[Rfam]
RNA: Small nucleolar RNA SNORD14
Organism: Papaver nudicaule
RNA sequence: UGUCAAUGAUGAUAAACUUAAGGCUUGUUUUUCAAGAGCAUUUGCAGUUGCCGCCUAAAAACUUUCGCCUUUCGCCGGGCUUGAGAGUUAAUGCUCUCCUUCCUUAGAUGUCUGAGACA
Number, nucleotide and partner (000 for none) at each position: 001u119002g118003u117004c116005a000006a000007u000008g000009a000010u000011g000012a000013u000014a000015a000016a000017c000018u000019u000020a000021a000022g000023g000024c000025u000026u000027g000028u000029u000030u000031u000032u000033c000034a000035a000036g000037a000038g000039c000040a000041u000042u000043u000044g000045c000046a000047g000048u000049u000050g000051c000052c000053g000054c000055c000056u000057a000058a000059a000060a000061a088062c087063u086064u085065u084066c083067g000068c000069c000070u000071u000072u000073c000074g000075c000076c000077g000078g000079g000080c000081u000082u000083g066084a065085g064086a063087g062088u061089u000090a000091a000092u000093g000094c000095u000096c000097u000098c000099c000100u000101u000102c000103c000104u000105u000106a000107g000108a000109u000110g000111u000112c000113u000114g000115a000116g004117a003118c002119a001